A member of the RNA family "Small nucleolar RNA SNORA33" from Dasypus novemcinctus, 130 nucleotides long.
By type it is an H/ACA-box small nucleolar RNA.
Taxonomically the source falls in Dasypus (Eukaryota, Xenarthra, Cingulata, Dasypodidae).
RNA sequence: AAGCCAGCCAAUGUCUCUGCUUACCUGAACGUGUUUCUGCAGAAAUUUUGAAAAGGCUGGCAAUAGUAAAGCCAUGCUACGAGCCUUAAGGACACUGAAGUCAUUAAGGUCCCUGAAAAUGGCAACAGCG
Number, nucleotide and partner (000 for none) at each position: 001a000002a000003g061004c060005c059006a058007g057008c000009c000010a000011a000012u000013g000014u000015c000016u043017c042018u041019g040020c039021u000022u000023a000024c000025c000026u000027g000028a000029a000030c000031g000032u000033g000034u000035u000036u000037c000038u000039g020040c019041a018042g017043a016044a000045a000046u000047u000048u000049u000050g000051a000052a000053a000054a000055g000056g000057c007058u006059g005060g004061c003062a000063a000064u000065a000066g000067u000068a000069a000070a000071g123072c122073c121074a120075u000076g000077c000078u000079a000080c000081g000082a000083g110084c109085c108086u107087u106088a105089a104090g000091g102092a101093c100094a000095c000096u000097g000098a000099a000100g093101u092102c091103a000104u089105u088106a087107a086108g085109g084110u083111c000112c000113c000114u000115g000116a000117a000118a000119a000120u074121g073122g072123c071124a000125a000126c000127a000128g000129c000130g000